[Rfam]
RNA: mir-9209 microRNA precursor family
RNA sequence: AAAGCAGGGGUCGGCAAACCGCGGCUCGUGAGCCACAUGCGGUUCACGAGCCGCGGUUUGCCGCUCUGUUGA
Number, nucleotide and partner (000 for none) at each position: 001a000002a000003a070004g069005c068006a067007g066008g000009g065010g064011u000012c063013g062014g061015c060016a059017a058018a057019c056020c055021g054022c053023g052024g051025c050026u049027c048028g047029u046030g000031a044032g043033c042034c041035a000036c000037a000038u000039g000040c000041g034042g033043u032044u031045c000046a029047c028048g027049a026050g025051c024052c023053g022054c021055g020056g019057u018058u017059u016060g015061c014062c013063g012064c010065u009066c007067u006068g005069u004070u003071g000072a000